RNA sequence: AUCAUCCUUUUCUUGGGGUCGUGCUAUUCAGUGUAGUGAGGGCAGAACAGCUAAUGCUAACACAACACACACGCAUCAACUAGAGCUUUGCUUUACCUUGGUGCAAUGUUUGAGAAA
Numbered sequence: 001a002u003c004a005u006c007c008u009u010u011u012c013u014u015g016g017g018g019u020c021g022u023g024c025u026a027u028u029c030a031g032u033g034u035a036g037u038g039a040g041g042g043c044a045g046a047a048c049a050g051c052u053a054a055u056g057c058u059a060a061c062a063c064a065a066c067a068c069a070c071a072c073g074c075a076u077c078a079a080c081u082a083g084a085g086c087u088u089u090g091c092u093u094u095a096c097c098u099u100g101g102u103g104c105a106a107u108g109u110u111u112g113a114g115a116a117a
Stems, first nucleotide, its partner, number of pairs: 006018004021051002024045002027042003073104006081095006

The family of this 117-nucleotide RNA from Prolemur simus is "U4atac minor spliceosomal RNA". The match comes from Rfam's covariance-model search (60 bits). The family's consensus secondary structure is taken from published work. The family's RNA type in Rfam is spliceosomal small nuclear RNA. U4atac is an essential component of the minor U12-type spliceosome complex which is required for removal of the rarer class of eukaryotic introns (AT-AC, U12-type).